Shown here is a 135-nucleotide sequence from Mustela putorius, a member of the family "Small nucleolar RNA SNORA11". From the family's description: U107 (SNORA11) is a member of the H/ACA class of snoRNAs that guide the sites of modification of uridines to pseudouridines. This snoRNA was identified by RT-PCR from blood cells and its expression confirmed by Northern blot analysis. The match comes from Rfam's covariance-model search (74 bits). The family's consensus secondary structure was predicted with RNAalifold. The organism belongs to Mustela putorius, within Eukaryota. It is annotated as an H/ACA-box small nucleolar RNA.
RNA sequence: AGGGUGUGCUCAGAGCUGGGCGGGACCUAAACAAAUGGCUCGUUUGUUAUAAAACACCCAACAAGAAUCUGGGUUCAUUUGUGACAAGGGGCACAAAACCUUGUAGCCUUCUUAUGAAACAUGGAGCCUACAACA
Numbered sequence: 001a002g003g004g005u006g007u008g009c010u011c012a013g014a015g016c017u018g019g020g021c022g023g024g025a026c027c028u029a030a031a032c033a034a035a036u037g038g039c040u041c042g043u044u045u046g047u048u049a050u051a052a053a054a055c056a057c058c059c060a061a062c063a064a065g066a067a068u069c070u071g072g073g074u075u076c077a078u079u080u081g082u083g084a085c086a087a088g089g090g091g092c093a094c095a096a097a098a099c100c101u102u103g104u105a106g107c108c109u110u111c112u113u114a115u116g117a118a119a120c121a122u123g124g125a126g127c128c129u130a131c132a133a134c135a
Stems, first nucleotide, its partner, number of pairs: 002059006013048002016046001018045005023039001026038002072128004080121003085116002088109003093104004